[Rfam]
RNA sequence: UAGUCGGUGAAAGUCCGACCGAGGUAGGGGCCAGACCGCCUCGUAGCUAGCAGACGCCUGGUGGUGAGAGCCUAAGGGUGGAGCAUCUGUGAAAAGCCCGUCAGGGUGAAGCAAACUUGCAGGCCGUAACGUGA
Numbered sequence: 001u002a003g004u005c006g007g008u009g010a011a012a013g014u015c016c017g018a019c020c021g022a023g024g025u026a027g028g029g030g031c032c033a034g035a036c037c038g039c040c041u042c043g044u045a046g047c048u049a050g051c052a053g054a055c056g057c058c059u060g061g062u063g064g065u066g067a068g069a070g071c072c073u074a075a076g077g078g079u080g081g082a083g084c085a086u087c088u089g090u091g092a093a094a095a096g097c098c099c100g101u102c103a104g105g106g107u108g109a110a111g112c113a114a115a116c117u118u119g120c121a122g123g124c125c126g127u128a129a130c131g132u133g134a
Base pairs, nucleotide, nucleotide: 020043021042022041023040024039050090051089052088053087054086055080056079057078058077059076064071065070097108098106099105111127112126
RNA: Group II catalytic intron D1-D4-4